[Rfam]
RNA: Small nucleolar RNA SNORD94
RNA sequence: UCAGUGGUGAUGAGAAGCGCAGGGGUACAGACCUCGGCUGUAUCAUGGGAGCCGACUAUAAAUGCUUGUUCUCCAUUUUAGCUUACAUGUGGUGGGUUGAUGGAGACAUUUAUAGGAGAUGACUGACUUUUCUGAGCUGA
Numbered sequence: 001u002c003a004g005u006g007g008u009g010a011u012g013a014g015a016a017g018c019g020c021a022g023g024g025g026u027a028c029a030g031a032c033c034u035c036g037g038c039u040g041u042a043u044c045a046u047g048g049g050a051g052c053c054g055a056c057u058a059u060a061a062a063u064g065c066u067u068g069u070u071c072u073c074c075a076u077u078u079u080a081g082c083u084u085a086c087a088u089g090u091g092g093u094g095g096g097u098u099g100a101u102g103g104a105g106a107c108a109u110u111u112a113u114a115g116g117a118g119a120u121g122a123c124u125g126a127c128u129u130u131u132c133u134g135a136g137c138u139g140a
Base pairs, nucleotide, nucleotide: 001140002139003138004137005136